[Rfam]
RNA sequence: GUGGGUGUAGCCAAGUGGUAAGGCAAAGGACUGUGACUCCUUCAUUCGCGGGUUCGAUCCCCGUCAUUCACC
Dot-bracket structure: (((((((..(((.........))).(((((.......))))).....(((((.......)))))))))))).
Rfam assigns this 72-nucleotide RNA sequence from Euglena gracilis to the family "tRNA".
The source organism's lineage runs through Eukaryota, Euglenozoa, Spirocuta, Euglenaceae and Euglena.
It is one of the family's seed sequences.
The base pairs follow the family's consensus structure, which is taken from published work.